This 87-nucleotide RNA from Cebus imitator belongs to the Rfam family "mir-515 microRNA precursor family". A reference for the family is Bentwich et al. (2005), "Identification of hundreds of conserved and nonconserved human microRNAs", Nat Genet.
RNA sequence: UCUCAUACUGUGACCCUCCAAAGGGAAGUACUUUCUGUUGUCUGAAAAGAAAGAAAUGCCUUCCCUUUAGAGUGUUACCGUUCGAGA
Dot-bracket structure: ((((..((.(((((.(((.(((((((((...((((..((...........))))))...))))))))).))).))))).))..))))